[Rfam]
RNA sequence: GCCUCGCCAACGCUGCGUUUCUCUGCACCCACACAGACACUGCUUGCAGCCGUCCUACCCUGCAGAUGAGAAAUUCGGAGUAAUCUUCACUUUUUGUGCUUUUGCACUACUGCCCGUAAGGGCCUGGCGUGACUCACGUCUGUACUCGGCAUCAGAAAGCUCAGGGCCCAAGAAGCUGCGUGGGAAACUGCGCAGUGGAACUGGUGUCCCUAUGGGAGUCGGUGCGAAGAUUGUGUGCUCUGCGGAGUGACACUGUAGUACAAUACGCAGCGUGCUUGACUUCGAGUAGCUUCGGCGAAAGAGGAAGGGUAUCAUUCGAUUCUGAUUACUCUGGCGAGGC
Numbered sequence: 001g002c003c004u005c006g007c008c009a010a011c012g013c014u015g016c017g018u019u020u021c022u023c024u025g026c027a028c029c030c031a032c033a034c035a036g037a038c039a040c041u042g043c044u045u046g047c048a049g050c051c052g053u054c055c056u057a058c059c060c061u062g063c064a065g066a067u068g069a070g071a072a073a074u075u076c077g078g079a080g081u082a083a084u085c086u087u088c089a090c091u092u093u094u095u096g097u098g099c100u101u102u103u104g105c106a107c108u109a110c111u112g113c114c115c116g117u118a119a120g121g122g123c124c125u126g127g128c129g130u131g132a133c134u135c136a137c138g139u140c141u142g143u144a145c146u147c148g149g150c151a152u153c154a155g156a157a158a159g160c161u162c163a164g165g166g167c168c169c170a171a172g173a174a175g176c177u178g179c180g181u182g183g184g185a186a187a188c189u190g191c192g193c194a195g196u197g198g199a200a201c202u203g204g205u206g207u208c209c210c211u212a213u214g215g216g217a218g219u220c221g222g223u224g225c226g227a228a229g230a231u232u233g234u235g236u237g238c239u240c241u242g243c244g245g246a247g248u249g250a251c252a253c254u255g256u257a258g259u260a261c262a263a264u265a266c267g268c269a270g271c272g273u274g275c276u277u278g279a280c281u282u283c284g285a286g287u288a289g290c291u292u293c294g295g296c297g298a299a300a301g302a303g304g305a306a307g308g309g310u311a312u313c314a315u316u317c318g319a320u321u322c323u324g325a326u327u328a329c330u331c332u333g334g335c336g337a338g339g340c
Base pairs, nucleotide, nucleotide: 001340002339003338004337007334008333009332012271013270014269015268016267017266018265022066023065024064025063036054037053038052041048076324077323078322079321080320085229086228087227088226112123113122114121115120126140127139128138129137130136142225143224144223145222147221148220164211165210166209272312273311274310275309276308277307

This 340-nucleotide sequence from Didymella pomorum belongs to the Rfam family "Nuclear RNase P". The family's consensus secondary structure is taken from published work. A search with the family's covariance model found it, with a score of 31 bits. It is annotated as a ribozyme. About the family: Ribonuclease P (RNase P) is a ubiquitous endoribonuclease, found in archaea, bacteria and eukarya as well as chloroplasts and mitochondria. Its best characterised activity is the generation of mature 5'-ends of tRNAs by cleaving the 5'-leader elements of precursor-tRNAs. Cellular RNase Ps are ribonucleoproteins. RNA from bacterial RNase Ps retains its catalytic activity in the absence of the protein subunit, i.e. it is a ribozyme. Isolated eukaryotic and archaeal RNase P RNA has not been shown to retain its catalytic function, but is still essential for the catalytic activity of the holoenzyme. Although the archaeal and eukaryotic holoenzyme s have a much greater protein content than the bacterial ones, the RNA cores from all the three lineages are homologous -- helices corresponding to P1, P2, P3, P4, and P10/11 are common to all cellular RNase P RNAs. Yet, there is considerable sequence variation, particularly among the eukaryotic RNAs. NCBI's taxonomy places the organism under Eukaryota, Ascomycota, saccharomyceta, Pezizomycotina, Didymella.